A member of the RNA family "Small nucleolar RNA SNORD111" from Mesitornis unicolor, 82 nucleotides long. The family's RNA type in Rfam is C/D-box small nucleolar RNA. Its family is annotated with nucleolus and RNA processing in the Gene Ontology. A reference for the family is Galardi et al. (2002), "Purified box C/D snoRNPs are able to reproduce site-specific 2'-O-methylation of target RNA in vitro", Mol Cell Biol. Lineage of the source: Eukaryota > Sauropsida > Archosauria > Theropoda > Mesitornis.

RNA sequence: UGGCCUGAAAUGAUGUUAUGCAUUCAUGUCUCUUCUCUGAGAUGUCUCAUGGAGACAGCUAGCUGCAUUCCUGAUCAGGCUU
Numbered sequence: 001u002g003g004c005c006u007g008a009a010a011u012g013a014u015g016u017u018a019u020g021c022a023u024u025c026a027u028g029u030c031u032c033u034u035c036u037c038u039g040a041g042a043u044g045u046c047u048c049a050u051g052g053a054g055a056c057a058g059c060u061a062g063c064u065g066c067a068u069u070c071c072u073g074a075u076c077a078g079g080c081u082u
Base pairs, nucleotide, nucleotide: 002081003080004079005078